[Rfam]
RNA sequence: GGUAUCAAGUUGGAGGCCACAGCAGAAAUGCUCAUGGCAUGGUCCUGUCAGAUUCUAACAAAUUUGUGAAUUCUGCU
Numbered sequence: 001g002g003u004a005u006c007a008a009g010u011u012g013g014a015g016g017c018c019a020c021a022g023c024a025g026a027a028a029u030g031c032u033c034a035u036g037g038c039a040u041g042g043u044c045c046u047g048u049c050a051g052a053u054u055c056u057a058a059c060a061a062a063u064u065u066g067u068g069a070a071u072u073c074u075g076c077u
Base pairs, nucleotide, nucleotide: 013045015044016043017042018041021077022076023075024074025073026072027071028040029039030038049066050065051064052063053062054061
RNA: Mammalian CPEB3 ribozyme